[Rfam]
RNA sequence: CUUCACCGACCCCAACCACAGCGGCUCAGCGCGGUCCUGCCCGUAAGUGGCCAGCAGGGCUUGCGCCUC
Numbered sequence: 001c002u003u004c005a006c007c008g009a010c011c012c013c014a015a016c017c018a019c020a021g022c023g024g025c026u027c028a029g030c031g032c033g034g035u036c037c038u039g040c041c042c043g044u045a046a047g048u049g050g051c052c053a054g055c056a057g058g059g060c061u062u063g064c065g066c067c068u069c
Stems, first nucleotide, its partner, number of pairs: 014026001016024002029064002032059001037054003041050003
Record summary
ASpks TB sRNA: a 69-nucleotide RNA from Actinokineospora bangkokensis. The match comes from Rfam's covariance-model search (69 bits). The organism belongs to Actinokineospora, within Bacteria. It is annotated as an antisense RNA.